[Rfam]
RNA sequence: CAAAGGCCAAGAGCUAGCCUCUCCUAGGCUUUGUCUGUGCUGUUCGAUAUCAGACAUAGCCUAGUUGAGGUUAACUUAUAUCCUUUUA
Number, nucleotide and partner (000 for none) at each position: 001c000002a000003a000004a000005g000006g000007c000008c000009a000010a000011g000012a076013g075014c000015u073016a072017g071018c070019c069020u068021c000022u000023c000024c000025u000026a000027g061028g060029c059030u058031u000032u056033g055034u054035c053036u052037g000038u000039g000040c000041u000042g000043u000044u000045c000046g000047a000048u000049a000050u000051c000052a036053g035054a034055c033056a032057u000058a030059g029060c028061c027062u000063a000064g000065u000066u000067g000068a020069g019070g018071u017072u016073a015074a000075c013076u012077u000078a000079u000080a000081u000082c000083c000084u000085u000086u000087u000088a000
mir-282 microRNA precursor family: an 88-nucleotide RNA from Rhynchophorus ferrugineus. On this family, see Li et al., BMC Genomics 2009: "Direct sequencing and expression analysis of a large number of miRNAs in Aedes aegypti and a multi-species survey of novel mosquito miRNAs". Its family is annotated with miRNA-mediated post-transcriptional gene silencing and RISC complex in the Gene Ontology. NCBI's taxonomy places the organism under Eukaryota, Eumetazoa, Arthropoda, Pterygota, Rhynchophorus.